[Rfam]
RNA: Guanidine-I riboswitch aptamer
Organism: Vagococcus fluvialis
RNA sequence: AAAAGUACUUACUAGGGUUCCGUAACGUUUUUUCGUUAGUCUGGUCCAAGAGUAAGCUCGUAGAAACUUACGAAACACGGAAGGACAAAAGCCUGGGAGAU
Numbered sequence: 001a002a003a004a005g006u007a008c009u010u011a012c013u014a015g016g017g018u019u020c021c022g023u024a025a026c027g028u029u030u031u032u033u034c035g036u037u038a039g040u041c042u043g044g045u046c047c048a049a050g051a052g053u054a055a056g057c058u059c060g061u062a063g064a065a066a067c068u069u070a071c072g073a074a075a076c077a078c079g080g081a082a083g084g085a086c087a088a089a090a091g092c093c094u095g096g097g098a099g100a101u
Base pairs, nucleotide, nucleotide: 008056009055010054011053012052015047016046020044021043022041023038024037025036026035027034058073059072060071061070062069076096078099082094083093084092